[Rfam]
RNA sequence: AUUGCCACAAAGGGGAGCCAAUUGGCUGAGAUUGAACAAUGGAGUUCUUGACCCUUUGAACCUGUAAGUUAGUACUUGCGUAGGGAUUGUGGUGUUAAGGACA
Numbered sequence: 001a002u003u004g005c006c007a008c009a010a011a012g013g014g015g016a017g018c019c020a021a022u023u024g025g026c027u028g029a030g031a032u033u034g035a036a037c038a039a040u041g042g043a044g045u046u047c048u049u050g051a052c053c054c055u056u057u058g059a060a061c062c063u064g065u066a067a068g069u070u071a072g073u074a075c076u077u078g079c080g081u082a083g084g085g086a087u088u089g090u091g092g093u094g095u096u097a098a099g100g101a102c103a
Stems, first nucleotide, its partner, number of pairs: 006091005011055004016049001017026003034047004061084004065078004
RNA: TPP riboswitch aptamer (THI element)
Organism: Salirhabdus euzebyi